Shown here is a 600-nucleotide part of an RNA from Sungouiella intermedia, a member of the family "Eukaryotic large subunit ribosomal RNA". It scores 3284 bits against the family's covariance model.
[Rfam]
RNA sequence: AUCAGCGGGGAAAGAAGACCCUGUUGAGCUUGACUCUAGUUUGACAUUGUGAAAAGACAUGGAGGGUGUAGAAUAAGUGGGAGCUUCGGCGCCGGUGAAAUACCACUACCUCCAUUGUUUUUUUACUUACUGAAUGAAGGGGAAUUGGUUGUCAUGACCACAUUCUAGCUUUACGCCUCUGGGUAAUCCCGGUUCAAGACAUUGUCAGGUGGGGAGUUUGGCUGGGGCGGCACAUCUGUUAAACGAUAACGCAGGUGUCCUAAGGGGGGCUCAUGGAGAACAGAAAUCUCCAGUAGAACAAAAGGGUAAAAGCCCCCUUGAUUUUGAUUUUCAGUGUGAAUACAAACCAUGAAAGUGUGGCCUAUCGAUCCUUUAGUCCCUCGGAAUUUGAGGCUAGAGGUGCCAGAAAAGUUACCACAGGGAUAACUGGCUUGUGGCAGUCAAGCGUUCAUAGCGACAUUGCUUUUUGAUUCUUCGAUGUCGGCUCUUCCUAUCAUACCGAAGCAGAAUUCGGUAAGCGUUGGAUUGUUCACCCACUAAUAGGGAACGUGAGCUGGGUUUAGACCGUCGUGAGACAGGUUAGUUUUACCCUACUGAUGG
Numbered sequence: 001a002u003c004a005g006c007g008g009g010g011a012a013a014g015a016a017g018a019c020c021c022u023g024u025u026g027a028g029c030u031u032g033a034c035u036c037u038a039g040u041u042u043g044a045c046a047u048u049g050u051g052a053a054a055a056g057a058c059a060u061g062g063a064g065g066g067u068g069u070a071g072a073a074u075a076a077g078u079g080g081g082a083g084c085u086u087c088g089g090c091g092c093c094g095g096u097g098a099a100a101u102a103c104c105a106c107u108a109c110c111u112c113c114a115u116u117g118u119u120u121u122u123u124u125a126c127u128u129a130c131u132g133a134a135u136g137a138a139g140g141g142g143a144a145u146u147g148g149u150u151g152u153c154a155u156g157a158c159c160a161c162a163u164u165c166u167a168g169c170u171u172u173a174c175g176c177c178u179c180u181g182g183g184u185a186a187u188c189c190c191g192g193u194u195c196a197a198g199a200c201a202u203u204g205u206c207a208g209g210u211g212g213g214g215a216g217u218u219u220g221g222c223u224g225g226g227g228c229g230g231c232a233c234a235u236c237u238g239u240u241a242a243a244c245g246a247u248a249a250c251g252c253a254g255g256u257g258u259c260c261u262a263a264g265g266g267g268g269g270c271u272c273a274u275g276g277a278g279a280a281c282a283g284a285a286a287u288c289u290c291c292a293g294u295a296g297a298a299c300a301a302a303a304g305g306g307u308a309a310a311a312g313c314c315c316c317c318u319u320g321a322u323u324u325u326g327a328u329u330u331u332c333a334g335u336g337u338g339a340a341u342a343c344a345a346a347c348c349a350u351g352a353a354a355g356u357g358u359g360g361c362c363u364a365u366c367g368a369u370c371c372u373u374u375a376g377u378c379c380c381u382c383g384g385a386a387u388u389u390g391a392g393g394c395u396a397g398a399g400g401u402g403c404c405a406g407a408a409a410a411g412u413u414a415c416c417a418c419a420g421g422g423a424u425a426a427c428u429g430g431c432u433u434g435u436g437g438c439a440g441u442c443a444a445g446c447g448u449u450c451a452u453a454g455c456g457a458c459a460u461u462g463c464u465u466u467u468u469g470a471u472u473c474u475u476c477g478a479u480g481u482c483g484g485c486u487c488u489u490c491c492u493a494u495c496a497u498a499c500c501g502a503a504g505c506a507g508a509a510u511u512c513g514g515u516a517a518g519c520g521u522u523g524g525a526u527u528g529u530u531c532a533c534c535c536a537c538u539a540a541u542a543g544g545g546a547a548c549g550u551g552a553g554c555u556g557g558g559u560u561u562a563g564a565c566c567g568u569c570g571u572g573a574g575a576c577a578g579g580u581u582a583g584u585u586u587u588a589c590c591c592u593a594c595u596g597a598u599g600g
Base pairs, nucleotide, nucleotide: 001598002597003596004595005594008592009591010590012587013586020421021420022419023418025417026416027413028412029411030410031409033217034216035215036214040209041208042207043206044205045204046203049126050125051124052123053122054121055120056119057118058117059115060114061113062112063111064110065109076107077106078105079104080103083090084089131196132195133194134193140190141189142188143187147159148158149157150156151155175184176183177182220233221231222230223229234256235255236254237253238252239251259360260359265317266316267315268314269313270312271297272296274292275291276290277289278288279287298307299306322346323345324344327341328340329339330338348357349356350355371399372398373397374396375395376394379393380392381391382390430471432469434468436464437463438462439461440460441459445455446454482557483555484554485553486552487549488546489545490544491543492542495520498515499514500513501512502511503510522536523535524534526532563581564580565579566578567576568575569574